[Rfam]
RNA sequence: UGAGUGUUAUGAUGAUGGAAGGAGGAUUCCUUCUUAGUCUAGCUCUGGUCUACCACUGGGAUUUAAUCCCAGUGG
Dot-bracket structure: .((((.....(((...((((((......))))))..)))..)))).......(((((((((.....)))))))))
A member of the RNA family "L17 ribosomal protein downstream element" from Streptococcus pluranimalium, 75 nucleotides long. The source organism's lineage runs through Bacteria, Bacillati, Lactobacillales, Streptococcaceae and Streptococcus. It is annotated as a cis-regulatory element.